[Rfam]
RNA sequence: GGAUCGGGAGGCGACCUGUGGGAGGGUCGCCAGGUAUGGAUCCGUUGCCCCCGUUUCGUCAGGGCGCGCGACCUCUCCCCAAGGUCGAGCG
Numbered sequence: 001g002g003a004u005c006g007g008g009a010g011g012c013g014a015c016c017u018g019u020g021g022g023a024g025g026g027u028c029g030c031c032a033g034g035u036a037u038g039g040a041u042c043c044g045u046u047g048c049c050c051c052c053g054u055u056u057c058g059u060c061a062g063g064g065c066g067c068g069c070g071a072c073c074u075c076u077c078c079c080c081a082a083g084g085u086c087g088a089g090c091g
Stems, first nucleotide, its partner, number of pairs: 001043005010031008065091003069087006
Background: The family of this 91-nucleotide RNA sequence from Palleronia pontilimi is "Rhodo-rpoB RNA". It scores 68 bits against the family's covariance model. Pairs were carried over by alignment from the consensus structure, which is taken from published work. The source organism's lineage runs through Bacteria, Pseudomonadati, Alphaproteobacteria, Roseobacteraceae and Palleronia. It is annotated as a cis-regulatory element.